[Rfam]
RNA: BsrF
Organism: Peribacillus muralis
RNA sequence: GCGAUGAGCUAAUUUGUGUAAGCCGCGGAACAAGCUUUUAGCUAAACGUCGGGAUGUGGCCUGACGGUUCUACGCCUCAAACGCAUCAAAGACGCCUGCUGCGUGCAGGCGUC
Numbered sequence: 001g002c003g004a005u006g007a008g009c010u011a012a013u014u015u016g017u018g019u020a021a022g023c024c025g026c027g028g029a030a031c032a033a034g035c036u037u038u039u040a041g042c043u044a045a046a047c048g049u050c051g052g053g054a055u056g057u058g059g060c061c062u063g064a065c066g067g068u069u070c071u072a073c074g075c076c077u078c079a080a081a082c083g084c085a086u087c088a089a090a091g092a093c094g095c096c097u098g099c100u101g102c103g104u105g106c107a108g109g110c111g112u113c
Base pairs, nucleotide, nucleotide: 014080015079016078018076024074025073027071028070029069030068031067034042035041047066048065050063051062052061091113092112093111094110095109096108097107098106099105